[Rfam]
RNA sequence: GUUUCAGACGAACCCUCGUGGGGUCGAAAC
Numbered sequence: 001g002u003u004u005c006a007g008a009c010g011a012a013c014c015c016u017c018g019u020g021g022g023g024u025c026g027a028a029a030c
Base pairs, nucleotide, nucleotide: 012024013023014022015021